[Rfam]
RNA sequence: AAUUGAAAAAGGCAAACCUGCUCGAAAGACAGGGACGCAAAGCCACGGGCCUAAAGCGCCGGUCGAAUGACCGAUCGCUAUGGUAGCCGGGUUGCCUGC
Numbered sequence: 001a002a003u004u005g006a007a008a009a010a011g012g013c014a015a016a017c018c019u020g021c022u023c024g025a026a027a028g029a030c031a032g033g034g035a036c037g038c039a040a041a042g043c044c045a046c047g048g049g050c051c052u053a054a055a056g057c058g059c060c061g062g063u064c065g066a067a068u069g070a071c072c073g074a075u076c077g078c079u080a081u082g083g084u085a086g087c088c089g090g091g092u093u094g095c096c097u098g099c
Stems, first nucleotide, its partner, number of pairs: 012038002017033004022029002041093004046089003049084003056078003
Rfam assigns this 99-nucleotide RNA sequence from Cohnella herbarum to the family "c-di-GMP-I riboswitch aptamer".
NCBI's taxonomy places the organism under Bacteria, Bacilli, Caryophanales, Paenibacillaceae, Cohnella.
The family's consensus secondary structure is taken from published work.
Clan: c-di-GMP_I riboswitch clan.